RNA sequence: GUAUUGAAUGUGAGAAUUGCAGGAAAUCAAACCAAUACAUUUCUCUGUUAUCUGAGUUGUUGCUGGUUUGGUUUUCUCCAAUAUCUUACCUUCACUUG
Numbered sequence: 001g002u003a004u005u006g007a008a009u010g011u012g013a014g015a016a017u018u019g020c021a022g023g024a025a026a027u028c029a030a031a032c033c034a035a036u037a038c039a040u041u042u043c044u045c046u047g048u049u050a051u052c053u054g055a056g057u058u059g060u061u062g063c064u065g066g067u068u069u070g071g072u073u074u075u076c077u078c079c080a081a082u083a084u085c086u087u088a089c090c091u092u093c094a095c096u097u098g
Stems, first nucleotide, its partner, number of pairs: 005094004011088004016082004021077001023075008032066002
Description
A member of the RNA family "MIR2275 microRNA precursor family" from Carex littledalei, 98 nucleotides long. Lineage of the source: Eukaryota > Spermatophyta > Cyperaceae > Cyperoideae > Carex subgen. Euthyceras. Pairs were carried over by alignment from the consensus structure, which was predicted with RNAalifold. Its family is annotated with miRNA-mediated post-transcriptional gene silencing and RISC complex in the Gene Ontology.